RNA sequence: GGCUUGGCCUGGGUGAUGGCGCGGAUGACAUCCCGGGAGAAGCCCUGGGGGUCGUCCUUGCGCCAGUCGGUGAGGUCCAGCC
Numbered sequence: 001g002g003c004u005u006g007g008c009c010u011g012g013g014u015g016a017u018g019g020c021g022c023g024g025a026u027g028a029c030a031u032c033c034c035g036g037g038a039g040a041a042g043c044c045c046u047g048g049g050g051g052u053c054g055u056c057c058u059u060g061c062g063c064c065a066g067u068c069g070g071u072g073a074g075g076u077c078c079a080g081c082c
Stems, first nucleotide, its partner, number of pairs: 001082004006077004014069004018064005025055005032050003035044002
Shown here is an 82-nucleotide RNA, a member of the family "mir-25 microRNA precursor family". For this family Rfam cites "Discovering microRNAs from deep sequencing data using miRDeep" (Friedlander et al., Nat Biotechnol, 2008). The family's consensus secondary structure was predicted with RNAalifold.